A member of the RNA family "Purine riboswitch aptamer" from Clostridium cadaveris, 98 nucleotides long. Its family is annotated with purine nucleobase biosynthetic process in the Gene Ontology. Riboswitches are metabolite binding domains within certain messenger RNAs that serve as precision sensors for their corresponding targets. A search with the family's covariance model found it, with a score of 71 bits. Pairs were carried over by alignment from the consensus structure, which is taken from published work.
RNA sequence: GAAAUUUUUAUUUCAUUUACUCAUAUAUACCCUGAAUAAGGCAGGGAGUAUCUACCGGAAACCAUAAAUUACCGACUAUGAGUGAGAUUAAUUACUUU
Numbered sequence: 001g002a003a004a005u006u007u008u009u010a011u012u013u014c015a016u017u018u019a020c021u022c023a024u025a026u027a028u029a030c031c032c033u034g035a036a037u038a039a040g041g042c043a044g045g046g047a048g049u050a051u052c053u054a055c056c057g058g059a060a061a062c063c064a065u066a067a068a069u070u071a072c073c074g075a076c077u078a079u080g081a082g083u084g085a086g087a088u089u090a091a092u093u094a095c096u097u098u
Base pairs, nucleotide, nucleotide: 018084019083020082021081022080023079024078025077030046031045032044033043034042056074057073058072060070061069